The record is a 123-nucleotide sequence from Octodon degus, which matches "Small nucleolar RNA SNORA44" in Rfam. Clan: SNORA44 clan. On this family, see Huttenhofer et al., EMBO J 2001: "RNomics: an experimental approach that identifies 201 candidates for novel, small, non-messenger RNAs in mouse". It scores 71 bits against the family's covariance model. Rfam describes the family as follows. ACA44 is a member of the H/ACA class of snoRNA that guide the sites of modification of uridines to pseudouridines. Rfam links the family to the GO terms RNA processing and nucleolus.
RNA sequence: AAAUAUAUCUCAAAGAAUUAAGUCAGUUAGAUACAGAAUCAAUUGCAUGCGAGAGUGGCCUGGAGAGACUUGGACAGCACGGGUCAACCCAAUGCCUGCAGCUGCCACUCAUUUCCUGUAAGA
Numbered sequence: 001a002a003a004u005a006u007a008u009c010u011c012a013a014a015g016a017a018u019u020a021a022g023u024c025a026g027u028u029a030g031a032u033a034c035a036g037a038a039u040c041a042a043u044u045g046c047a048u049g050c051g052a053g054a055g056u057g058g059c060c061u062g063g064a065g066a067g068a069c070u071u072g073g074a075c076a077g078c079a080c081g082g083g084u085c086a087a088c089c090c091a092a093u094g095c096c097u098g099c100a101g102c103u104g105c106c107a108c109u110c111a112u113u114u115c116c117u118g119u120a121a122g123a
Stems, first nucleotide, its partner, number of pairs: 011036001016032001018030004062116004077105002080098004